About this RNA
Shown here is a 217-nucleotide RNA from Klebsiella michiganensis, a member of the family "Gammaproteobacterial sRNA STnc100". Taxonomically the source falls in Klebsiella (Bacteria, Pseudomonadati, Enterobacterales, Enterobacteriaceae).
[Rfam]
RNA sequence: CGAGUUUCAUCAGAUGUUAAAUUUCUGGCGUGGUGAAUCCCCCUAUGCGGAGGGGCGGAAAUGACAAGGCAGCAUCAUGAUGAUAAUGCCCAUGAAAAAUUGACCGCGAGUCACGGUUUGUCAGCCAACGGCUCACCUGGAGGCACCAGGCACCACAACCAUCUCAAAAUUAGAAACAGCAGUGGCAGGCUCGCUUCGGCGAGCCUUUUCUUUAAGU
Numbered sequence: 001c002g003a004g005u006u007u008c009a010u011c012a013g014a015u016g017u018u019a020a021a022u023u024u025c026u027g028g029c030g031u032g033g034u035g036a037a038u039c040c041c042c043c044u045a046u047g048c049g050g051a052g053g054g055g056c057g058g059a060a061a062u063g064a065c066a067a068g069g070c071a072g073c074a075u076c077a078u079g080a081u082g083a084u085a086a087u088g089c090c091c092a093u094g095a096a097a098a099a100u101u102g103a104c105c106g107c108g109a110g111u112c113a114c115g116g117u118u119u120g121u122c123a124g125c126c127a128a129c130g131g132c133u134c135a136c137c138u139g140g141a142g143g144c145a146c147c148a149g150g151c152a153c154c155a156c157a158a159c160c161a162u163c164u165c166a167a168a169a170u171u172a173g174a175a176a177c178a179g180c181a182g183u184g185g186c187a188g189g190c191u192c193g194c195u196u197c198g199g200c201g202a203g204c205c206u207u208u209u210c211u212u213u214a215a216g217u
Stems, first nucleotide, its partner, number of pairs: 016163001030156006040055005062097001101106001108134004116126001136150005176217002185208001187206007